[Rfam]
RNA sequence: AAGAAAGUGACUGCCGCCCCGCACAGGGGCGAAGCUAAUAAACCAAUAUCAAAACAAGUUUCAUAGAAGCCGAAGCGCAUCAAACGGUUCAAGACACCC
Numbered sequence: 001a002a003g004a005a006a007g008u009g010a011c012u013g014c015c016g017c018c019c020c021g022c023a024c025a026g027g028g029g030c031g032a033a034g035c036u037a038a039u040a041a042a043c044c045a046a047u048a049u050c051a052a053a054a055c056a057a058g059u060u061u062c063a064u065a066g067a068a069g070c071c072g073a074a075g076c077g078c079a080u081c082a083a084a085c086g087g088u089u090c091a092a093g094a095c096a097c098c099c
Stems, first nucleotide, its partner, number of pairs: 012079003015031006058071001059067002
The record is a 99-nucleotide sequence from Caballeronia glathei, which matches "Burkholderia sRNA Bp1_Cand684_SIPHT" in Rfam.
A reference for the family is Khoo et al. (2012), "Computational discovery and RT-PCR validation of novel Burkholderia conserved and Burkholderia pseudomallei unique sRNAs", BMC Genomics.
The source organism's lineage runs through Bacteria, Betaproteobacteria, Burkholderiales, Burkholderiaceae and Caballeronia.
A search with the family's covariance model found it, with a score of 54 bits.
The family has 14 seed sequences and 176 matches in Rfam 15.1.
It is annotated as a small RNA.